Shown here is a 54-nucleotide RNA sequence from Skermanella aerolata, a member of the family "serC leader". This family is a putative regulatory RNA structure that is found upstream of the serC-serA operon in some alpha-proteobacteria. The final stem of the structure overlaps the ribosome binding site of the serC reading frame. It scores 43 bits against the family's covariance model. Pairs were carried over by alignment from the consensus structure.
RNA sequence: CGCCGGGCCACGACCCCCCACCGGGUCGCAACUAUUCUGCAAGGAAUAGCCGUC
Numbered sequence: 001c002g003c004c005g006g007g008c009c010a011c012g013a014c015c016c017c018c019c020a021c022c023g024g025g026u027c028g029c030a031a032c033u034a035u036u037c038u039g040c041a042a043g044g045a046a047u048a049g050c051c052g053u054c
Stems, first nucleotide, its partner, number of pairs: 011028006032049003036045003